The record is a 188-nucleotide sequence from Roseburia sp. OF03-24, which matches "Lysine riboswitch aptamer" in Rfam.
Nucleotides: 188
Base pairs, nucleotide, nucleotide: 006183007182008181009180010179011178017084018083019082020081022079023078024077025076035068036067037066038065040063041062088116089115090114091113092112093111094110095109096108097107098106099105117143118142120140121139122138123137124136125135126134127133145173146172147171148170149169150168151167
Number, partner (000 for none) and nucleotide at each position: 001000u002000u003000g004000c005000u006183u007182g008181a009180u010179a011178g012000a013000g014000g015000u016000u017084g018083c019082g020081u021000g022079c023078u024077u025076u026000a027000a028000g029000a030000g031000u032000a033000g034000u035068u036067u037066u038065u039000a040063c041062g042000g043000a044000u045000g046000u047000g048000g049000c050000a051000g052000a053000g054000a055000c056000a057000g058000u059000g060000g061000a062041u063040g064000g065038a066037a067036a068035a069000u070000g071000a072000a073000a074000g075000g076025a077024a078023a079022g080000g081020a082019c083018g084017c085000c086000g087000a088116a089115g090114g091113a092112g093111u094110a095109u096108a097107u098106u099105u100000g101000c102000u103000g104000c105099a106098g107097a108096u109095a110094u111093g112092u113091u114090c115089c116088u117143g118142g119000g120140c121139a122138u123137a124136a125135g126134g127133u128000a129000a130000a131000g132000a133127g134126c135125c136124u137123u138122a139121u140120g141000a142118c143117u144000g145173u146172c147171a148170u149169c150168u151167u152000a153000a154000g155000c156000u157000g158000u159000a160000a161000a162000g163000c164000a165000g166000a167151a168150a169149g170148a171147u172146g173145g174000g175000g176000c177000g178011c179010u180009a181008u182007c183006g184000g185000a186000u187000u188000c
Gene Ontology term of the family: lysine biosynthetic process. A search with the family's covariance model found it, with a score of 112 bits.